[Rfam]
RNA: IS605-orfB-I RNA
RNA sequence: ACCUUAUAUAGAUGUAGUGACGCAAGACAGUGACGCAUCUCCCUGUAAGGUGGUGUUUAUAUAGAAGUAUCAGUGAUAAGUUCUAUUGUGUGGCUUUUGAGUCGAAAUAGAAUGAGCUGAUAUGGAAUAGGUUAACUGUAAGACCUUGAGUUGAAAUACUCUAAAAUUGACCUAGAAAUGAAAUUUCUCGAAUUUCCUAAUUUCUAGUUACAGUAAG
Numbered sequence: 001a002c003c004u005u006a007u008a009u010a011g012a013u014g015u016a017g018u019g020a021c022g023c024a025a026g027a028c029a030g031u032g033a034c035g036c037a038u039c040u041c042c043c044u045g046u047a048a049g050g051u052g053g054u055g056u057u058u059a060u061a062u063a064g065a066a067g068u069a070u071c072a073g074u075g076a077u078a079a080g081u082u083c084u085a086u087u088g089u090g091u092g093g094c095u096u097u098u099g100a101g102u103c104g105a106a107a108u109a110g111a112a113u114g115a116g117c118u119g120a121u122a123u124g125g126a127a128u129a130g131g132u133u134a135a136c137u138g139u140a141a142g143a144c145c146u147u148g149a150g151u152u153g154a155a156a157u158a159c160u161c162u163a164a165a166a167u168u169g170a171c172c173u174a175g176a177a178a179u180g181a182a183a184u185u186u187c188u189c190g191a192a193u194u195u196c197c198u199a200a201u202u203u204c205u206a207g208u209u210a211c212a213g214u215a216a217g
Stems, first nucleotide, its partner, number of pairs: 001051008010040006017034002020031002022028001067123008081112007092103002095100001129146005135214006141167001148161004172207008180196006